[Rfam]
RNA sequence: CACAUCGAUAGAGGUCGCAACUGAUAUGAAUCUACGCCGAGUUGGAGCACAACAAAGACGCGUAUUAGAGGGGGAGAAGUUGCCGAAAGAAUUUUGACGCUCAGCAAAGUUCUUGGGCUAGUGAGGAAAACUCACUAGACUGUCGCAAAUGGUUAAGAACCAUGCGGAGGGCUAUUCGUUCA
Numbered sequence: 001c002a003c004a005u006c007g008a009u010a011g012a013g014g015u016c017g018c019a020a021c022u023g024a025u026a027u028g029a030a031u032c033u034a035c036g037c038c039g040a041g042u043u044g045g046a047g048c049a050c051a052a053c054a055a056a057g058a059c060g061c062g063u064a065u066u067a068g069a070g071g072g073g074g075a076g077a078a079g080u081u082g083c084c085g086a087a088a089g090a091a092u093u094u095u096g097a098c099g100c101u102c103a104g105c106a107a108a109g110u111u112c113u114u115g116g117g118c119u120a121g122u123g124a125g126g127a128a129a130a131c132u133c134a135c136u137a138g139a140c141u142g143u144c145g146c147a148a149a150u151g152g153u154u155a156a157g158a159a160c161c162a163u164g165c166g167g168a169g170g171g172c173u174a175u176u177c178g179u180u181c182a
Base pairs, nucleotide, nucleotide: 007176008175009174010173011172017083018082019081020080021079022078025075033064034063035062036061037060087114088113089112090111091110092109093108094107095106096105098104115141116140118138119137120136121135122134123133124132125131143167144166145165146164147163
Dot-bracket structure: ......(((((.....((((((..(.......(((((......................)))))..........)..))))))...((((((((((.(.....)))))))))))((.((((((((.....)))))))).)).(((((...............)))))....)))))......

Overview
The family of this 182-nucleotide sequence from Lactococcus cremoris is "Lysine riboswitch aptamer". It is one of the family's seed sequences.